About this RNA
tRNA: a 71-nucleotide RNA sequence from Absidia glauca.
[Rfam]
RNA sequence: GCCGGGAUAGUAUAGUGGCAGUACAUUGCGUUGUGGCCGCACUGACCUGAGUUCGAUUCUCAGUCCCGGCA
Numbered sequence: 001g002c003c004g005g006g007a008u009a010g011u012a013u014a015g016u017g018g019c020a021g022u023a024c025a026u027u028g029c030g031u032u033g034u035g036g037c038c039g040c041a042c043u044g045a046c047c048u049g050a051g052u053u054c055g056a057u058u059c060u061c062a063g064u065c066c067c068g069g070c071a
Stems, first nucleotide, its partner, number of pairs: 001070007010024004027041004047063005
Gene Ontology term of the family: triplet codon-amino acid adaptor activity. The match comes from Rfam's covariance-model search (61 bits). Transfer RNA (tRNA) molecules are approximately 80 nucleotides in length. It is annotated as a transfer RNA.